[Rfam]
RNA sequence: GCCAAGGUGACGCCUUUAUCUGCAUUUGCACCUGCACCUUAUCGUAUUGUGUUUGUUUGGGUUUCAUCUCUGCCUUGAACUUGCUCAAAAAGGGUAUAUACUGGGAGAGAUGAUGGUGAGGAAUAGGUGCAGGUGAAGGUGCAGAUGAAUGCCACUUUGGC
Numbered sequence: 001g002c003c004a005a006g007g008u009g010a011c012g013c014c015u016u017u018a019u020c021u022g023c024a025u026u027u028g029c030a031c032c033u034g035c036a037c038c039u040u041a042u043c044g045u046a047u048u049g050u051g052u053u054u055g056u057u058u059g060g061g062u063u064u065c066a067u068c069u070c071u072g073c074c075u076u077g078a079a080c081u082u083g084c085u086c087a088a089a090a091a092g093g094g095u096a097u098a099u100a101c102u103g104g105g106a107g108a109g110a111u112g113a114u115g116g117u118g119a120g121g122a123a124u125a126g127g128u129g130c131a132g133g134u135g136a137a138g139g140u141g142c143a144g145a146u147g148a149a150u151g152c153c154a155c156u157u158u159g160g161c
Base pairs, nucleotide, nucleotide: 001161002160003159004158005157006156007155008154009153012152013151015149016148017147018146019145020144021143022142023141024140025139026138027137029135030134031133032132033131034130035129036128037127038126039125055080056079057078058077059076060075061074
MIR530 microRNA precursor family: a 161-nucleotide RNA from Vitis vinifera. Lineage of the source: Eukaryota > Magnoliopsida > eudicotyledons > Vitales > Vitis. Gene Ontology terms of the family: miRNA-mediated post-transcriptional gene silencing and RISC complex.